Notes
Rfam assigns this 128-nucleotide RNA from Vombatus ursinus to the family "Small nucleolar RNA SNORA63". The family's consensus secondary structure was predicted with PFOLD.

[Rfam]
RNA sequence: UUGCAGGAUCAAGUUACAAUAUGGCUGUGAAGUGCCUAUAUUGUCGUUCCCCCUGCUCAAAACAAAUGUUUCCUACUAUCCCUGUCUAACUUGUCUAUAGUAAGACAGGGACGCUUGGUCUCAAACAU
Dot-bracket structure: ..(((((........((((((((((........))).))))))).......)))))........................((((.(((............).)).))))...................

About the family: E3 belongs to the H/ACA class of snoRNAs and is involved in the processing of eukaryotic pre-rRNA and has regions of complementarity to 18S rRNA. E3 is encoded in introns in the gene for protein synthesis initiation factor 4AII. The source organism's lineage runs through Eukaryota, Opisthokonta, Eumetazoa, Craniata and Vombatus. It scores 110 bits against the family's covariance model. By type it is an H/ACA-box small nucleolar RNA.